The record is a 61-nucleotide sequence from Pristionchus pacificus, which matches "mir-8364 microRNA precursor family" in Rfam.

RNA sequence: UCUUCAUUCCCCUCACUAUCUCACCGGUCAGAGAGACGAGAGAUUGUGUGAAAUGAAGAGA
Numbered sequence: 001u002c003u004u005c006a007u008u009c010c011c012c013u014c015a016c017u018a019u020c021u022c023a024c025c026g027g028u029c030a031g032a033g034a035g036a037c038g039a040g041a042g043a044u045u046g047u048g049u050g051a052a053a054u055g056a057a058g059a060g061a
Base pairs, nucleotide, nucleotide: 001059002058003057004056005055006054007053010050012048014046015045017043019041020040021039022038
Dot-bracket structure: (((((((..(.(.((.(.((((...............)))).).)).).)..)))))))..